[Rfam]
RNA sequence: AGGAGGUAUAGAGGUGCGGUGUGCAAAAGUAGCCAACGGUGAGGAACGGGAAUCCGGUGAACCGUGGUGAAAGGGCAUCACCGCCGAAGUCCGGUUAAAUUCUCGUAAUACCGGACUGGUUUGGUAUUGAAUAAGUGCCGGACUGUCACCCUCACUUGCUUUUAUUACUUAGAAGAGCUUACUGGGGGUGGAGAGCUAUCACCGGG
Dot-bracket structure: .......((((....(((((((((.......(((.(((((....................))))))))......))).))))))...((((((((...(......)...))))))))(((((((((((.....))))))))))).(((((((((............................)))))))))....)))).......

Notes: Shown here is a 206-nucleotide sequence from Sporotomaculum syntrophicum, a member of the family "Lysine riboswitch aptamer". Gene Ontology term of the family: lysine biosynthetic process. The match comes from Rfam's covariance-model search (109 bits).